[Rfam]
RNA sequence: CAUUGAAGUGAUGAUAUUACUUUCCGAACUCAUCAAUGUCGACUCUAAAUUAUCAGACUACAAUUAUCUGAUCCAUG
Numbered sequence: 001c002a003u004u005g006a007a008g009u010g011a012u013g014a015u016a017u018u019a020c021u022u023u024c025c026g027a028a029c030u031c032a033u034c035a036a037u038g039u040c041g042a043c044u045c046u047a048a049a050u051u052a053u054c055a056g057a058c059u060a061c062a063a064u065u066a067u068c069u070g071a072u073c074c075a076u077g
Base pairs, nucleotide, nucleotide: 001077002076003075005073006072
Shown here is a 77-nucleotide RNA from Cajanus cajan, a member of the family "Small nucleolar RNA Z155". Rfam classes the family as a C/D-box small nucleolar RNA. On this family, see Chen et al., Nucleic Acids Res 2003: "The high diversity of snoRNAs in plants: identification and comparative study of 120 snoRNA genes from Oryza sativa". It scores 45 bits against the family's covariance model.